[Rfam]
Shown here is a 153-nucleotide sequence from Cicer arietinum, a member of the family "MIR530 microRNA precursor family". Pairs were carried over by alignment from the consensus structure, which was predicted with WAR. Its family is annotated with RISC complex and miRNA-mediated post-transcriptional gene silencing in the Gene Ontology.

RNA sequence: GCCAAUAUGUUGCCUUUAUCUGCAUUUGCACCUGCACUUUACCUGGAUCUGUAACAUACAAAAUUGUUUUAUAUAUAAAAAAAAAUUAUAUUACAAUUUAUGAGGGACCCCAGGCAAGGUGCAGAUGUAUAUGCAGGUGAAUGCCAUGUUGGU
Numbered sequence: 001g002c003c004a005a006u007a008u009g010u011u012g013c014c015u016u017u018a019u020c021u022g023c024a025u026u027u028g029c030a031c032c033u034g035c036a037c038u039u040u041a042c043c044u045g046g047a048u049c050u051g052u053a054a055c056a057u058a059c060a061a062a063a064u065u066g067u068u069u070u071a072u073a074u075a076u077a078a079a080a081a082a083a084a085a086u087u088a089u090a091u092u093a094c095a096a097u098u099u100a101u102g103a104g105g106g107a108c109c110c111c112a113g114g115c116a117a118g119g120u121g122c123a124g125a126u127g128u129a130u131a132u133g134c135a136g137g138u139g140a141a142u143g144c145c146a147u148g149u150u151g152g153u
Stems, first nucleotide, its partner, number of pairs: 001153009012144002015141011027129004032124008
Dot-bracket structure: (((((((((..((.(((((((((((.((((.((((((((.............................................................................)))))))).)))).))))))))))).)))))))))))